Notes
A member of the RNA family "S15-Flavobacteria ribosomal protein leader" from Myroides injenensis, 66 nucleotides long.
RNA sequence: UACCUUUGCAUCGAAUUAUAGAAGUACUAUGAUUCUGCAUAAAAAUCAUUAAAUAAUAUUGGCAUG
Numbered sequence: 001u002a003c004c005u006u007u008g009c010a011u012c013g014a015a016u017u018a019u020a021g022a023a024g025u026a027c028u029a030u031g032a033u034u035c036u037g038c039a040u041a042a043a044a045a046u047c048a049u050u051a052a053a054u055a056a057u058a059u060u061g062g063c064a065u066g
Base pairs, nucleotide, nucleotide: 014034015033016032017031018030019029
For this family Rfam cites "Discovery of 20 novel ribosomal leader candidates in bacteria and archaea" (Eckert and Weinberg, BMC Microbiol, 2020).
Clan: Ribosomal Protein S15 Leader clan.